[Rfam]
RNA sequence: AACGAUCGGGAAGCGUCCUCCUCCUCCCAGCGCUCCCGGACGGAUUGGCAACACUCCUCCUCCCAGUUGUCAAUCAGGAUAGGCAGCGCCCGCCGGAUCUCCUCCCCCGGCGGGCGUUGCUU
Number, nucleotide and partner (000 for none) at each position: 001a000002a000003c000004g000005a000006u000007c038008g037009g036010g035011a034012a000013g033014c032015g031016u030017c000018c000019u000020c000021c000022u000023c000024c000025u000026c000027c000028c000029a000030g016031c015032g014033c013034u011035c010036c009037c008038g007039g000040a000041c000042g000043g075044a074045u073046u072047g071048g070049c069050a068051a067052c066053a000054c000055u000056c000057c000058u000059c000060c000061u000062c000063c000064c000065a000066g052067u051068u050069g049070u048071c047072a046073a045074u044075c043076a000077g000078g000079a000080u000081a000082g000083g000084c000085a000086g117087c116088g115089c114090c113091c112092g111093c110094c109095g108096g107097a000098u000099c000100u000101c000102c000103u000104c000105c000106c000107c096108c095109g094110g093111c092112g091113g090114g089115c088116g087117u086118u000119g000120c000121u000122u000

Annotation:
The family of this 122-nucleotide RNA from Sinorhizobium alkalisoli is "Alphaproteobacterial ar14". NCBI's taxonomy places the organism under Bacteria, Pseudomonadati, Pseudomonadota, Rhizobiaceae, Sinorhizobium. The match comes from Rfam's covariance-model search (102 bits). The base pairs follow the family's consensus structure. For this family Rfam cites "A conserved alpha-proteobacterial small RNA contributes to osmoadaptation and symbiotic efficiency of rhizobia on legume roots" (Robledo et al., Environ Microbiol, 2017).